[Rfam]
RNA sequence: CGAGGUCGAAGUGUACCCCGCACGCCCAUCAGUGGCGCGCCGGGGAAUGGAACUGACCGAG
Dot-bracket structure: ...(((((.......(((((..((((.......))))...)))))........)))))...
RNA: Trypanosomatid snoRNA TB9Cs4H1
Organism: Trypanosoma conorhini